[Rfam]
RNA sequence: UUAGCUAUUUUAGAUAGGCUUGUAGUCGGCAAUUUGGGUACAGGCGGAAAAUUCUUUUCGUAUCUAUUGGGCUAAAGAUUUUUGUUAGCCAUGUAGACAUUUCCUAAAUGGCUGAAAAUGUUGAUUUUAAGAUGUUUUUCAUCCAUUUGGACACUUGUCUGAAUGGAUUUUUUAUUUUUAAAA
Number, nucleotide and partner (000 for none) at each position: 001u075002u074003a073004g072005c071006u070007a000008u000009u000010u000011u066012a065013g064014a063015u062016a061017g000018g045019c044020u043021u042022g041023u040024a039025g000026u037027c036028g035029g034030c000031a000032a000033u000034u029035u028036g027037g026038g000039u024040a023041c022042a021043g020044g019045c018046g000047g059048a058049a057050a056051a000052u000053u000054c000055u000056u050057u049058u048059c047060g000061u016062a015063u014064c013065u012066a011067u000068u000069g000070g006071g005072c004073u003074a002075a001076a000077g000078a000079u130080u129081u000082u120083u000084g000085u000086u000087a113088g112089c111090c110091a109092u108093g000094u106095a105096g104097a000098c000099a000100u000101u000102u000103c000104c096105u095106a094107a000108a092109u091110g090111g089112c088113u087114g000115a000116a000117a000118a000119u000120g082121u000122u000123g000124a000125u000126u000127u000128u000129a080130a079131g159132a158133u157134g000135u000136u000137u000138u153139u000140c000141a000142u000143c000144c000145a000146u000147u000148u000149g000150g000151a000152c000153a138154c000155u000156u000157g133158u132159c131160u000161g000162a000163a000164u000165g000166g000167a000168u000169u000170u000171u000172u000173u000174a000175u000176u000177u000178u000179u000180a000181a000182a000183a000
The family of this 183-nucleotide sequence from Enterococcus saccharolyticus is "Enterococcus sRNA 2410". It scores 68 bits against the family's covariance model. Produced as 2 transcripts on Northern blot. It is annotated as a small RNA. For this family Rfam cites "Small RNAs in vancomycin-resistant Enterococcus faecium involved in daptomycin response and resistance" (Sinel et al., Sci Rep, 2017).